[Rfam]
RNA: int-alpA RNA
Organism: Paramixta manurensis
RNA sequence: GCUAUGGCUAGACCGGCCAGUCGAAAAGCAGUAUCGUCACUGCCUGCCAUAGCGAACAUUGACGAGC
Numbered sequence: 001g002c003u004a005u006g007g008c009u010a011g012a013c014c015g016g017c018c019a020g021u022c023g024a025a026a027a028g029c030a031g032u033a034u035c036g037u038c039a040c041u042g043c044c045u046g047c048c049a050u051a052g053c054g055a056a057c058a059u060u061g062a063c064g065a066g067c
Base pairs, nucleotide, nucleotide: 001053002052003051004050005049006048007047008046011022012021013020028043029042030041031040035066037064